[Rfam]
RNA sequence: ACGAGGAGGGAAGGUAAUGCGAAGCAUUUCUAUUAAUACUUCCCGACGGCUUGCCGGCGAGCCGAAGGGGAGGGGGCAUUACAUUGG
Numbered sequence: 001a002c003g004a005g006g007a008g009g010g011a012a013g014g015u016a017a018u019g020c021g022a023a024g025c026a027u028u029u030c031u032a033u034u035a036a037u038a039c040u041u042c043c044c045g046a047c048g049g050c051u052u053g054c055c056g057g058c059g060a061g062c063c064g065a066a067g068g069g070g071a072g073g074g075g076g077c078a079u080u081a082c083a084u085u086g087g
Stems, first nucleotide, its partner, number of pairs: 008044006014030001016028004053077003058072001062069002
The family of this 87-nucleotide RNA sequence from Lachnospiraceae bacterium A2 is "GA-cis RNA".